[Rfam]
RNA sequence: UUUAGACAUUUCGAGUUGGGUCGAUGCCCAAGCCAACCUGCCUACCCGGGCAAGGUGGAUUGCGAAAGCAAAUGUGGCUCCCUUUGGAGCAACCAAGCGGGGCGCA
Numbered sequence: 001u002u003u004a005g006a007c008a009u010u011u012c013g014a015g016u017u018g019g020g021u022c023g024a025u026g027c028c029c030a031a032g033c034c035a036a037c038c039u040g041c042c043u044a045c046c047c048g049g050g051c052a053a054g055g056u057g058g059a060u061u062g063c064g065a066a067a068g069c070a071a072a073u074g075u076g077g078c079u080c081c082c083u084u085u086g087g088a089g090c091a092a093c094c095a096a097g098c099g100g101g102g103c104g105c106a
Base pairs, nucleotide, nucleotide: 006075007074008073009072010071017030018029019028020027021026033058034057037055038054039053040051041050042049045101046100047099048098077090078089079088080087
Source information
Shown here is a 106-nucleotide RNA from Microchloropsis gaditana, a member of the family "SAM-I/IV (S-adenosyl methionine) riboswitch aptamer". Clan: SAM clan. The organism belongs to Microchloropsis, within Eukaryota. It scores 55 bits against the family's covariance model. The base pairs follow the family's consensus structure, which is taken from published work.